[Rfam]
RNA sequence: CAGCUCAUCAAAGGACUGUGAUAUAUAGAUAUUUGAACGUCUCACAGCCAGCUUUGAUGAGCUGGC
Numbered sequence: 001c002a003g004c005u006c007a008u009c010a011a012a013g014g015a016c017u018g019u020g021a022u023a024u025a026u027a028g029a030u031a032u033u034u035g036a037a038c039g040u041c042u043c044a045c046a047g048c049c050a051g052c053u054u055u056g057a058u059g060a061g062c063u064g065g066c
Stems, first nucleotide, its partner, number of pairs: 005060009014049001016047006025040002

A member of the RNA family "mir-2 microRNA precursor family" from Octopus sinensis, 66 nucleotides long.
NCBI's taxonomy places the organism under Eukaryota, Eumetazoa, Lophotrochozoa, Coleoidea, Octopus.
A reference for the family is Ambros (2001), "microRNAs: tiny regulators with great potential", Cell.
It scores 48 bits against the family's covariance model.